[Rfam]
RNA sequence: ACAAGUCGAACGCAGGUUAAGAGCGCCACGUCCUGUGUCAACACCUACACUAGCACGUCCUGUGCG
Numbered sequence: 001a002c003a004a005g006u007c008g009a010a011c012g013c014a015g016g017u018u019a020a021g022a023g024c025g026c027c028a029c030g031u032c033c034u035g036u037g038u039c040a041a042c043a044c045c046u047a048c049a050c051u052a053g054c055a056c057g058u059c060c061u062g063u064g065c066g
Base pairs, nucleotide, nucleotide: 012048014046015045016044017043025039027037028036029035053065054064055063056062
Dot-bracket structure: ...........(.((((.......(.(((.....))).)...)))).)....((((.....)))).
A member of the RNA family "Bacillaceae-1 RNA" from Pseudogracilibacillus auburnensis, 66 nucleotides long.
Lineage of the source: Bacteria > Bacillota > Caryophanales > Bacillaceae > Pseudogracilibacillus.
The family's RNA type in Rfam is small RNA.
The match comes from Rfam's covariance-model search (55 bits).